The family of this 140-nucleotide RNA sequence from Nocardioides daedukensis is "SAM riboswitch aptamer (S box leader)". NCBI's taxonomy places the organism under Bacteria, Bacillati, Actinomycetota, Nocardioidaceae, Nocardioides.

Nucleotides: 140
Base pairs, nucleotide, nucleotide: 003138004137005136006135007134008133013042014041015040016039017038021031022030023029026105027104028103043098044097045096046095048094049093052088102132107129108128109127111125112124
Number, partner (000 for none) and nucleotide at each position: 001000a002000g003138c004137u005136c006135a007134u008133c009000g010000a011000g012000a013042g014041g015040g016039a017038c018000u019000g020000a021031g022030g023029g024000a025000a026105c027104g028103g029023c030022c031021c032000a033000g034000u035000g036000a037000a038017g039016u040015c041014c042013c043098g044097g045096c046095a047000a048094c049093c050000g051000c052088c053000a054000c055000g056000a057000g058000u059000c060000c061000c062000c063000u064000g065000a066000u067000c068000c069000g070000c071000c072000c073000g074000u075000c076000g077000g078000a079000c080000c081000a082000g083000u084000c085000g086000u087000g088052g089000a090000a091000a092000c093049g094048g095046u096045g097044c098043u099000a100000a101000u102132u103028c104027c105026g106000g107129c108128c109127c110000a111125c112124g113000g114000c115000g116000a117000g118000a119000u120000a121000c122000g123000a124112c125111g126000c127109g128108g129107g130000g131000a132102a133008g134007a135006u136005g137004a138003g139000a140000a
It scores 70 bits against the family's covariance model.